The family of this 108-nucleotide RNA sequence from Carnegiea gigantea is "Plant small nucleolar RNA R71". Its family is annotated with nucleolus and RNA processing in the Gene Ontology. On this family, see Brown et al., Trends Plant Sci 2003: "Plant snoRNAs: functional evolution and new modes of gene expression". The family has 25 seed sequences and 278,378 matches in Rfam 15.1. A search with the family's covariance model found it, with a score of 57 bits.

RNA sequence: AGACUAUAAUGGGGGCAUAGGUGUAGCAAAUCUUUAAACUGCUCUCAGGCUUCGCAGAGCACCUCUUCAUCUUUUUGCAUGAAAUUGGUGAUCUGAUUUCUCAAGCUU
Numbered sequence: 001a002g003a004c005u006a007u008a009a010u011g012g013g014g015g016c017a018u019a020g021g022u023g024u025a026g027c028a029a030a031u032c033u034u035u036a037a038a039c040u041g042c043u044c045u046c047a048g049g050c051u052u053c054g055c056a057g058a059g060c061a062c063c064u065c066u067u068c069a070u071c072u073u074u075u076u077g078c079a080u081g082a083a084a085u086u087g088g089u090g091a092u093c094u095g096a097u098u099u100c101u102c103a104a105g106c107u108u
Stems, first nucleotide, its partner, number of pairs: 001108001004105001005103001006101001057074002
The family's RNA type in Rfam is C/D-box small nucleolar RNA.